[Rfam]
RNA sequence: UUCUGUAAACGGUAGUUUGUGACUGAUGUCACUUUAAACUAUGGGCUAAGCUCAGUAUCAUCACUACAGACCAAACCCUCACUCUUACCGGUGAGGGUUUUCUUUUGUA
Numbered sequence: 001u002u003c004u005g006u007a008a009a010c011g012g013u014a015g016u017u018u019g020u021g022a023c024u025g026a027u028g029u030c031a032c033u034u035u036a037a038a039c040u041a042u043g044g045g046c047u048a049a050g051c052u053c054a055g056u057a058u059c060a061u062c063a064c065u066a067c068a069g070a071c072c073a074a075a076c077c078c079u080c081a082c083u084c085u086u087a088c089c090g091g092u093g094a095g096g097g098u099u100u101u102c103u104u105u106u107g108u109a
Base pairs, nucleotide, nucleotide: 015035019032020031021030022029073100074099075098076097077096078095079094080093081092082091083090
Enterobacteria rnk leader: a 109-nucleotide RNA from Buttiauxella agrestis.
It scores 70 bits against the family's covariance model.
The family's RNA type in Rfam is cis-regulatory leader.
Pairs were carried over by alignment from the consensus structure, which is taken from published work.